[Rfam]
RNA sequence: AAAUUUGAAUAUCUCCGAGUGUAUAAGCCUAAGGCUUAGCUAAGGUUUAUACACCGGUUGGGCGUUAAAGCCCCCAGGGUAUAAGUGGAAACGCUUAUGCCUCCCGACUUGGAAAGGAGAUGCUGGUUAUAACGC
Number, nucleotide and partner (000 for none) at each position: 001a000002a000003a000004u000005u000006u126007g000008a000009a000010u000011a121012u120013c119014u118015c117016c116017g000018a000019g054020u053021g052022u051023a050024u049025a048026a047027g046028c045029c044030u000031a000032a000033g041034g040035c039036u000037u000038a000039g035040c034041u033042a000043a000044g029045g028046u027047u026048u025049a024050u023051a022052c021053a020054c019055c000056g000057g000058u000059u000060g073061g072062g071063c070064g000065u000066u000067a000068a000069a000070g063071c062072c061073c060074c000075c000076a000077g102078g101079g100080u099081a098082u097083a096084a095085g094086u093087g092088g000089a000090a000091a000092c087093g086094c085095u084096u083097a082098u081099g080100c079101c078102u077103c112104c111105c000106g000107a000108c000109u000110u000111g104112g103113a000114a000115a000116g016117g015118a014119g013120a012121u011122g000123c000124u000125g000126g006127u000128u000129a000130u000131a000132a000133c000134g000135c000